[Rfam]
RNA sequence: GCCGGGAGGGCGGCGGAUACAACACCCCGAGAGGGGGAAGAAGCCCGCGCGACCUAUGCCGCGUUAUCAGCCUCCCGGCGCCAGCGA
Numbered sequence: 001g002c003c004g005g006g007a008g009g010g011c012g013g014c015g016g017a018u019a020c021a022a023c024a025c026c027c028c029g030a031g032a033g034g035g036g037g038a039a040g041a042a043g044c045c046c047g048c049g050c051g052a053c054c055u056a057u058g059c060c061g062c063g064u065u066a067u068c069a070g071c072c073u074c075c076c077g078g079c080g081c082c083a084g085c086g087a
Stems, first nucleotide, its partner, number of pairs: 001079009012045003025036003047064005

Shown here is an 87-nucleotide RNA from Magnetospirillum sp. UT-4, a member of the family "sRNA-Xcc1".
The literature on the family includes a 2011 paper in Nucleic Acids Res by Schmidtke et al., "Genome-wide transcriptome analysis of the plant pathogen Xanthomonas identifies sRNAs with putative virulence functions".
The base pairs follow the family's consensus structure, which was predicted with RNAalifold.
A search with the family's covariance model found it, with a score of 55 bits.